[Rfam]
RNA sequence: AUUUAUCUUCAGGGCGAGGUGCAAUUCCUCACCGGUGGUAAAUUGCAUCUUGCAAAAGCCCACGAGCGAUUUUUUAAAUUGCAGAUUUGGUGUAAAUCCAAAGCCGACGGUAUAGUCCGGAUGAAAGAAGACAUUU
Numbered sequence: 001a002u003u004u005a006u007c008u009u010c011a012g013g014g015c016g017a018g019g020u021g022c023a024a025u026u027c028c029u030c031a032c033c034g035g036u037g038g039u040a041a042a043u044u045g046c047a048u049c050u051u052g053c054a055a056a057a058g059c060c061c062a063c064g065a066g067c068g069a070u071u072u073u074u075u076a077a078a079u080u081g082c083a084g085a086u087u088u089g090g091u092g093u094a095a096a097u098c099c100a101a102a103g104c105c106g107a108c109g110g111u112a113u114a115g116u117c118c119g120g121a122u123g124a125a126a127g128a129a130g131a132c133a134u135u136u
Base pairs, nucleotide, nucleotide: 004133006131007130008129009128010127017029018028019027031116032115033106034105035063036062037061038060058104059103066082067081068080086102087101088100089099090098108119109118110117
RNA: FMN riboswitch aptamer (RFN element)